[Rfam]
RNA sequence: GUCUUGCAAGUGGCAACGGCUAACGUCGAGUACCCUCGGCCGCUGGCCCACUGUGCUGAUCCGAUUAUUCGGUACAGCUGCCUGUGAGUCCCGUAGUCAACCGGCACCGCAUCGGUACGGUUGAUGGCCAGACACUGCGCUACCCCGCAGGGCGACCGAUACACGGGUUCGUGAUCGAUAAUCCCUGGAGGAGUGUCCCUUCCGGGACAGGUC
Number, nucleotide and partner (000 for none) at each position: 001g000002u000003c000004u000005u000006g000007c000008a000009a000010g000011u000012g000013g000014c000015a000016a000017c000018g048019g047020c046021u045022a044023a000024c000025g040026u039027c038028g037029a036030g035031u000032a000033c000034c000035c030036u029037c028038g027039g026040c025041c000042g000043c000044u022045g021046g020047c019048c018049c000050a000051c077052u076053g075054u000055g073056c072057u071058g070059a069060u067061c000062c000063g000064a000065u000066u000067a060068u000069u059070c058071g057072g056073u055074a000075c053076a052077g051078c000079u000080g000081c000082c000083u000084g000085u000086g000087a000088g128089u127090c000091c126092c000093g000094u000095a000096g000097u120098c119099a000100a000101c000102c000103g000104g118105c000106a116107c115108c114109g000110c000111a000112u000113c000114g108115g107116u106117a000118c104119g098120g097121u000122u000123g000124a000125u000126g091127g089128c088129c000130a000131g000132a000133c000134a000135c000136u000137g000138c000139g000140c000141u000142a000143c000144c000145c000146c000147g000148c187149a186150g185151g184152g183153c000154g000155a179156c000157c177158g176159a175160u174161a000162c173163a172164c171165g170166g000167g000168u000169u000170c165171g164172u163173g162174a160175u159176c158177g157178a000179u155180a000181a000182u000183c152184c151185c150186u149187g148188g000189a000190g000191g000192a000193g000194u000195g000196u000197c000198c211199c210200u209201u000202c000203c000204g000205g000206g000207a000208c000209a200210g199211g198212u000213c000
This 213-nucleotide sequence from Mangrovimicrobium sediminis belongs to the Rfam family "ilvB-OMG RNA". It scores 120 bits against the family's covariance model. By type it is a cis-regulatory element. The source organism's lineage runs through Bacteria, Pseudomonadati, Pseudomonadota, Cellvibrionales and Mangrovimicrobium.